[Rfam]
RNA sequence: UGACCCGGUGGCGCCCGACGCCAAAGACCAAAGAACCGGGGAAAGAACCAAUCCCACCCCCACCGCCCCCGUCGCUCACUCGCCGGAGUGAAUAUGCCCAACGCAACUGGCGCGGACGGGUAGUUGUGGUGCAGCGUCGGCAGCGACAGCAAGUCCAGACAUGCAUCGGCCCUCGCCGGGACGGCAAUCCCAGUGCGAGGGCCUGAUCACCGAGGAAGGCAACAACUUCCCG
Number, nucleotide and partner (000 for none) at each position: 001u000002g000003a000004c000005c000006c000007g211008g210009u209010g208011g000012c000013g000014c000015c000016c000017g073018a072019c071020g070021c000022c000023a000024a000025a000026g000027a000028c000029c000030a000031a000032a000033g000034a000035a000036c000037c000038g000039g000040g000041g000042a000043a000044a000045g000046a000047a000048c000049c000050a000051a000052u000053c000054c000055c000056a000057c000058c000059c000060c000061c000062a000063c000064c000065g000066c000067c000068c000069c000070c020071g019072u018073c017074g000075c000076u091077c090078a089079c088080u087081c086082g000083c000084c000085g000086g081087a080088g079089u078090g077091a076092a000093u000094a000095u000096g000097c000098c000099c000100a000101a000102c000103g000104c000105a000106a000107c143108u142109g141110g000111c000112g000113c000114g000115g000116a000117c000118g000119g000120g000121u000122a000123g000124u000125u000126g000127u000128g000129g000130u000131g000132c000133a000134g000135c000136g000137u000138c000139g000140g000141c109142a108143g107144c000145g000146a000147c000148a000149g000150c000151a000152a000153g000154u000155c000156c000157a000158g000159a000160c000161a000162u000163g000164c000165a000166u000167c000168g203169g202170c201171c200172c199173u000174c197175g196176c195177c000178g191179g190180g189181a188182c000183g000184g000185c000186a000187a000188u181189c180190c179191c178192a000193g000194u000195g176196c175197g174198a000199g172200g171201g170202c169203c168204u000205g000206a000207u000208c010209a009210c008211c007212g000213a000214g230215g229216a228217a227218g226219g000220c000221a000222a000223c000224a000225a000226c218227u217228u216229c215230c214231c000232g000
Description: Shown here is a 232-nucleotide RNA sequence from Streptomyces monashensis, a member of the family "Streptomyces sRNA 4677". The family has 12 seed sequences and 563 matches in Rfam 15.1. Pairs were carried over by alignment from the consensus structure. A reference for the family is Hindra et al. (2014), "Complex intra-operonic dynamics mediated by a small RNA in Streptomyces coelicolor", PLoS One. From the family's description: Located in the intergenic region between anti-sigma factor SCO4677 gene and a putative regulatory protein gene SCO4676. scr4677 expression requires the SCO4677 activity and scr4677 sRNA itself seem to affect the levels of the SCO4676-associated transcripts. Lineage of the source: Bacteria > Actinomycetes > Kitasatosporales > Streptomycetaceae > Streptomyces.